[Rfam]
RNA sequence: GGGUAGGCAUUGUCAAGCGGCUACUUCGCAAACUCUGACUCAAAUUGGAUUACCGAUUGGAUCCGCGAGACCCAGGCGUCUAGUUGGUCUGACUUGCUUGGCAGUUCAACUGGAUCGUCUGCGCUCUCUCUCCGAAACUUGCUGCUGACGCUAUCCUACCUUUUU
Numbered sequence: 001g002g003g004u005a006g007g008c009a010u011u012g013u014c015a016a017g018c019g020g021c022u023a024c025u026u027c028g029c030a031a032a033c034u035c036u037g038a039c040u041c042a043a044a045u046u047g048g049a050u051u052a053c054c055g056a057u058u059g060g061a062u063c064c065g066c067g068a069g070a071c072c073c074a075g076g077c078g079u080c081u082a083g084u085u086g087g088u089c090u091g092a093c094u095u096g097c098u099u100g101g102c103a104g105u106u107c108a109a110c111u112g113g114a115u116c117g118u119c120u121g122c123g124c125u126c127u128c129u130c131u132c133c134g135a136a137a138c139u140u141g142c143u144g145c146u147g148a149c150g151c152u153a154u155c156c157u158a159c160c161u162u163u164u165u
Stems, first nucleotide, its partner, number of pairs: 002160006012149004017145004025136004
RNA: Vault RNA
Organism: Macrostomum lignano